[Rfam]
RNA sequence: UGGAAAUGAUGAAAUAGAGAUAAUUGGGUGUUGAAUGUUGUGUGAUUGGAAAUUUUAUUAUAUAUAUAAUAAUUCUAACUUUACUAUUUUAUAGAACUUUAAAUAGAGUGGGGUGUGUGUGUGUGUGUGUGUGGUGGCUAUGGAAAGGGGGCACUGACUGGUGCUGCUGAUAUUGGAGUGCAUCUGAGGCUGUUGUAGAAAUAACGUGGGUUUUUGACUACAACAUUGCCUAUGAUUAUAGCCCCAAAACAGCUCACCUAACUAGCCCAGCACCCUAAAAUCUCUAACAGGUUCAUUAAACAUGGUCCUGUGAUCUGAUCUGA
Numbered sequence: 001u002g003g004a005a006a007u008g009a010u011g012a013a014a015u016a017g018a019g020a021u022a023a024u025u026g027g028g029u030g031u032u033g034a035a036u037g038u039u040g041u042g043u044g045a046u047u048g049g050a051a052a053u054u055u056u057a058u059u060a061u062a063u064a065u066a067u068a069a070u071a072a073u074u075c076u077a078a079c080u081u082u083a084c085u086a087u088u089u090u091a092u093a094g095a096a097c098u099u100u101a102a103a104u105a106g107a108g109u110g111g112g113g114u115g116u117g118u119g120u121g122u123g124u125g126u127g128u129g130u131g132u133g134g135u136g137g138c139u140a141u142g143g144a145a146a147g148g149g150g151g152c153a154c155u156g157a158c159u160g161g162u163g164c165u166g167c168u169g170a171u172a173u174u175g176g177a178g179u180g181c182a183u184c185u186g187a188g189g190c191u192g193u194u195g196u197a198g199a200a201a202u203a204a205c206g207u208g209g210g211u212u213u214u215u216g217a218c219u220a221c222a223a224c225a226u227u228g229c230c231u232a233u234g235a236u237u238a239u240a241g242c243c244c245c246a247a248a249a250c251a252g253c254u255c256a257c258c259u260a261a262c263u264a265g266c267c268c269a270g271c272a273c274c275c276u277a278a279a280a281u282c283u284c285u286a287a288c289a290g291g292u293u294c295a296u297u298a299a300a301c302a303u304g305g306u307c308c309u310g311u312g313a314u315c316u317g318a319u320c321u322g323a
Stems, first nucleotide, its partner, number of pairs: 001322004191225008200215002203212003
This 323-nucleotide RNA from Tupaia belangeri belongs to the Rfam family "Small Cajal body-specific RNA 7". For this family Rfam cites "Cajal body-specific small nuclear RNAs: a novel class of 2'-O-methylation and pseudouridylation guide RNAs" (Darzacq et al., EMBO J, 2002).